[Rfam]
RNA sequence: GUUCGGUGAUGAUCCCCAUGCGUGUCAUCUGAUCCCGGGACCCCCUGCUCCCUGGCUGCCCCCCACACCAAGUGUUCUGCUUGCUGGGGGGUUCGGGUCGGCAUGGGGGUUCCGGAAAAUAUGAUCAGAGUAGUUUUAUUCUGAGAAC
Numbered sequence: 001g002u003u004c005g006g007u008g009a010u011g012a013u014c015c016c017c018a019u020g021c022g023u024g025u026c027a028u029c030u031g032a033u034c035c036c037g038g039g040a041c042c043c044c045c046u047g048c049u050c051c052c053u054g055g056c057u058g059c060c061c062c063c064c065a066c067a068c069c070a071a072g073u074g075u076u077c078u079g080c081u082u083g084c085u086g087g088g089g090g091g092u093u094c095g096g097g098u099c100g101g102c103a104u105g106g107g108g109g110u111u112c113c114g115g116a117a118a119a120u121a122u123g124a125u126c127a128g129a130g131u132a133g134u135u136u137u138a139u140u141c142u143g144a145g146a147a148c
Base pairs, nucleotide, nucleotide: 001148002147003146004145043108044107045106046105047104050101051100
RNA: Small nucleolar RNA SNORD10
Organism: Sphenodon punctatus